[Rfam]
RNA sequence: GUAAGGAAGAGCCAUUAUGUGCGAAAUGCAUAAUUAAAAAUCGGUUCCGAUGAUCUGCCGUUUGACAAAUGUGAGGGGCGAUAGAUUUU
Numbered sequence: 001g002u003a004a005g006g007a008a009g010a011g012c013c014a015u016u017a018u019g020u021g022c023g024a025a026a027u028g029c030a031u032a033a034u035u036a037a038a039a040a041u042c043g044g045u046u047c048c049g050a051u052g053a054u055c056u057g058c059c060g061u062u063u064g065a066c067a068a069a070u071g072u073g074a075g076g077g078g079c080g081a082u083a084g085a086u087u088u089u
Stems, first nucleotide, its partner, number of pairs: 009047005016032006057079003062075001065072002
RNA: GA-cis RNA